[Rfam]
RNA: mir-H2 microRNA precursor family
RNA sequence: GCCACCGUCGCACGCGCCCGGCACAGACUCUGUUCUUGGUUCGCGGCCUGAGCCAGGGACGAGUGCGACUGGGGC
Numbered sequence: 001g002c003c004a005c006c007g008u009c010g011c012a013c014g015c016g017c018c019c020g021g022c023a024c025a026g027a028c029u030c031u032g033u034u035c036u037u038g039g040u041u042c043g044c045g046g047c048c049u050g051a052g053c054c055a056g057g058g059a060c061g062a063g064u065g066c067g068a069c070u071g072g073g074g075c
Stems, first nucleotide, its partner, number of pairs: 001075003005071001007069007015061002018058002020054003024050003028046001